[Rfam]
RNA sequence: UAAUAAACAUGAAAAAAGGAACUGCGUCAACAGUUCCCUUUUGACAGCACCGCUAAAGACGGUGGCAAGUUAUAUAGUUAUCUCAAA
Numbered sequence: 001u002a003a004u005a006a007a008c009a010u011g012a013a014a015a016a017a018g019g020a021a022c023u024g025c026g027u028c029a030a031c032a033g034u035u036c037c038c039u040u041u042u043g044a045c046a047g048c049a050c051c052g053c054u055a056a057a058g059a060c061g062g063u064g065g066c067a068a069g070u071u072a073u074a075u076a077g078u079u080a081u082c083u084c085a086a087a
Stems, first nucleotide, its partner, number of pairs: 021034004049063004054058001
The record is an 87-nucleotide RNA sequence from Enterococcus hirae, which matches "RNA anti-toxin A" in Rfam. The base pairs follow the family's consensus structure, which was predicted with RNAalifold. For this family Rfam cites "Abundance of type I toxin-antitoxin systems in bacteria: searches for new candidates and discovery of novel families" (Fozo et al., Nucleic Acids Res, 2010). NCBI's taxonomy places the organism under Bacteria, Bacillota, Lactobacillales, Enterococcaceae, Enterococcus hirae.